The record is a 132-nucleotide RNA sequence from Desulfosporosinus sp. Tol-M, which matches "Molybdenum/Tungsten riboswitch aptamer (Moco RNA motif)" in Rfam. The base pairs follow the family's consensus structure, which is taken from published work. The source organism's lineage runs through Bacteria, Bacillota, Eubacteriales, Desulfitobacteriaceae and Desulfosporosinus.
RNA sequence: AAUUAAUCCUAUCUCCGAGCCGGAUCAACCUAAUGAGUAAUCUAUGGUAACCGGCCAGGGCUUAAAGCCCUCGGGGUGUACCUGGAAACGGGUAUGCCUUCACUAUUGAAAAGGAGGUGACCAGGCCAGUUA
Numbered sequence: 001a002a003u004u005a006a007u008c009c010u011a012u013c014u015c016c017g018a019g020c021c022g023g024a025u026c027a028a029c030c031u032a033a034u035g036a037g038u039a040a041u042c043u044a045u046g047g048u049a050a051c052c053g054g055c056c057a058g059g060g061c062u063u064a065a066a067g068c069c070c071u072c073g074g075g076g077u078g079u080a081c082c083u084g085g086a087a088a089c090g091g092g093u094a095u096g097c098c099u100u101c102a103c104u105a106u107u108g109a110a111a112a113g114g115a116g117g118u119g120a121c122c123a124g125g126c127c128a129g130u131u132a
Stems, first nucleotide, its partner, number of pairs: 004125001011118006019055005025049001028048003035042002057071005074099011100109002